A member of the RNA family "ALIL pseudoknot" from Yimella sp. RIT 621, 132 nucleotides long. Rfam classes the family as a cis-regulatory element. The match comes from Rfam's covariance-model search (55 bits). The organism belongs to Yimella, within Bacteria.
RNA sequence: GACUUUCUUCGCGGGGGAACUCGACCCCCGCAGUCGAUGAUCAUGAGGUUCAUCGAGGACAUGCGCGAUCAGGGCUACGCGGUCGAGUCGGUCUGUCGAGUGCUGCGUGAGCAGGGCUGUCAGAUCGCCGCG
Numbered sequence: 001g002a003c004u005u006u007c008u009u010c011g012c013g014g015g016g017g018a019a020c021u022c023g024a025c026c027c028c029c030g031c032a033g034u035c036g037a038u039g040a041u042c043a044u045g046a047g048g049u050u051c052a053u054c055g056a057g058g059a060c061a062u063g064c065g066c067g068a069u070c071a072g073g074g075c076u077a078c079g080c081g082g083u084c085g086a087g088u089c090g091g092u093c094u095g096u097c098g099a100g101u102g103c104u105g106c107g108u109g110a111g112c113a114g115g116g117c118u119g120u121c122a123g124a125u126c127g128c129c130g131c132g
Stems, first nucleotide, its partner, number of pairs: 013029005078132005089127002092124004097119002